The family of this 54-nucleotide RNA sequence from Oncorhynchus kisutch is "UnaL2 LINE 3' element". Taxonomically the source falls in Oncorhynchus (Eukaryota, Craniata, Actinopteri, Neopterygii). Rfam's curators write: The eel long interspersed element (LINE) UnaL2 and its partner short interspersed element (SINE) share a conserved 3' tail containing a stem-loop that is critical for their retrotransposition. Presumably, the first step of retrotransposition is the recognition of their 3' tails by UnaL2-encoded reverse transcriptase. Rfam classes the family as a cis-regulatory element. The base pairs follow the family's consensus structure, which is taken from published work.
[Rfam]
RNA sequence: UGCAACCAUAACUGUAAGUUGCUUUGGAUAAAAGCAACUGCUAAAUGGCAUAUA
Numbered sequence: 001u002g003c004a005a006c007c008a009u010a011a012c013u014g015u016a017a018g019u020u021g022c023u024u025u026g027g028a029u030a031a032a033a034g035c036a037a038c039u040g041c042u043a044a045a046u047g048g049c050a051u052a053u054a
Stems, first nucleotide, its partner, number of pairs: 013043001014041003020036006